[Rfam]
RNA sequence: AUCGGAACGAGCCCAGCGUGCAAAACUAGUCUUUUAUAAUCAGCAGUUUUGUUCGUUCGGCUCGCGUCAAUC
Numbered sequence: 001a002u003c004g005g006a007a008c009g010a011g012c013c014c015a016g017c018g019u020g021c022a023a024a025a026c027u028a029g030u031c032u033u034u035u036a037u038a039a040u041c042a043g044c045a046g047u048u049u050u051g052u053u054c055g056u057u058c059g060g061c062u063c064g065c066g067u068c069a070a071u072c
Stems, first nucleotide, its partner, number of pairs: 001071002004067001008064006017055002020052004025047002

About this RNA
This 72-nucleotide sequence from Holothuria leucospilota belongs to the Rfam family "mir-375 microRNA precursor family". NCBI's taxonomy places the organism under Eukaryota, Metazoa, Deuterostomia, Holothuroidea, Holothuria. A reference for the family is Chen et al. (2005), "The developmental miRNA profiles of zebrafish as determined by small RNA cloning", Genes Dev.